Shown here is a 127-nucleotide RNA from Microcebus murinus, a member of the family "Small nucleolar RNA SNORA72". Rfam classes the family as an H/ACA-box small nucleolar RNA. On this family, see Ganot et al., Genes Dev 1997: "The family of box ACA small nucleolar RNAs is defined by an evolutionarily conserved secondary structure and ubiquitous sequence elements essential for RNA accumulation". U72 is a member of the H/ACA class of snoRNAs. The snoRNA gene is located in intron 4 of the ribosomal L30 protein gene in human, mouse and chicken. Its family is annotated with nucleolus and RNA processing in the Gene Ontology. The match comes from Rfam's covariance-model search (108 bits).
RNA sequence: AAGUGACUGUACUCUUCUAUUUUGUAAUAAUCAGGACAGGCUAAACAUUCGCUAUGUUAAAGCUAUGCACAUGUCCCCAGACCUAGUUCUUUCCCUAGGUUUGGUUUUAUAAAUGCUUGUGAUAAAC
Dot-bracket structure: ..(((......((.(((((((.......))).)))).))..........))).........((.(.((........((((((((((........))))))))))..........))).)).......
Numbered sequence: 001a002a003g004u005g006a007c008u009g010u011a012c013u014c015u016u017c018u019a020u021u022u023u024g025u026a027a028u029a030a031u032c033a034g035g036a037c038a039g040g041c042u043a044a045a046c047a048u049u050c051g052c053u054a055u056g057u058u059a060a061a062g063c064u065a066u067g068c069a070c071a072u073g074u075c076c077c078c079a080g081a082c083c084u085a086g087u088u089c090u091u092u093c094c095c096u097a098g099g100u101u102u103g104g105u106u107u108u109a110u111a112a113a114u115g116c117u118u119g120u121g122a123u124a125a126a127c
Stems, first nucleotide, its partner, number of pairs: 003052003012039002015036004019031003062120002065117001067116002077104010